[Rfam]
RNA sequence: CCCUUGGACUGUUAUAUCAAACCAGAGUAGCAUGCUUCACCGCAAAACGGGACAGGAUGAACAGGGAA
Numbered sequence: 001c002c003c004u005u006g007g008a009c010u011g012u013u014a015u016a017u018c019a020a021a022c023c024a025g026a027g028u029a030g031c032a033u034g035c036u037u038c039a040c041c042g043c044a045a046a047a048c049g050g051g052a053c054a055g056g057a058u059g060a061a062c063a064g065g066g067a068a
Base pairs, nucleotide, nucleotide: 001066002065003064004063009055010054011053012052013051022050023049030043031042
RAGATH-18 RNA: a 68-nucleotide RNA sequence from Peptoclostridium litorale.
The base pairs follow the family's consensus structure, which is taken from published work.
Rfam classes the family as a small RNA.
Rfam's curators write: Actinobacteria, Firmicutes, Fusobacteria, Thermotogae (1 example).